The family of this 77-nucleotide sequence from Candidula unifasciata is "mir-9/mir-79 microRNA precursor family". A reference for the family is Lagos-Quintana et al. (2001), "Identification of novel genes coding for small expressed RNAs", Science.
RNA sequence: CCAGUCUUGCCUUUGGUAACCUAGCUUUAUGAUAUUUUUCUACAAUCAUACAGCUAGAUAACCAAAGACAAGAACGG
Numbered sequence: 001c002c003a004g005u006c007u008u009g010c011c012u013u014u015g016g017u018a019a020c021c022u023a024g025c026u027u028u029a030u031g032a033u034a035u036u037u038u039u040c041u042a043c044a045a046u047c048a049u050a051c052a053g054c055u056a057g058a059u060a061a062c063c064a065a066a067g068a069c070a071a072g073a074a075c076g077g
Stems, first nucleotide, its partner, number of pairs: 001077002005073001007071003011067007019059001021057006028050006

It scores 64 bits against the family's covariance model. Rfam links the family to the GO terms RISC complex and miRNA-mediated post-transcriptional gene silencing.